The family of this 81-nucleotide sequence from Alloalcanivorax dieselolei is "antisense RNA of dnaA mRNA". A search with the family's covariance model found it, with a score of 60 bits. Gene Ontology term of the family: regulation of mRNA stability. The organism belongs to Alloalcanivorax dieselolei, within Bacteria.
RNA sequence: CUUGGCGUUGGGAUUACGCCGUAAUAACUCGUUUCCCACCGCAUGCAUCAAGUGCGUCUUGCCCAGCCCCACGCCACCGUA
Numbered sequence: 001c002u003u004g005g006c007g008u009u010g011g012g013a014u015u016a017c018g019c020c021g022u023a024a025u026a027a028c029u030c031g032u033u034u035c036c037c038a039c040c041g042c043a044u045g046c047a048u049c050a051a052g053u054g055c056g057u058c059u060u061g062c063c064c065a066g067c068c069c070c071a072c073g074c075c076a077c078c079g080u081a
Stems, first nucleotide, its partner, number of pairs: 005042003009038005016032003021028001052077003056074002061072001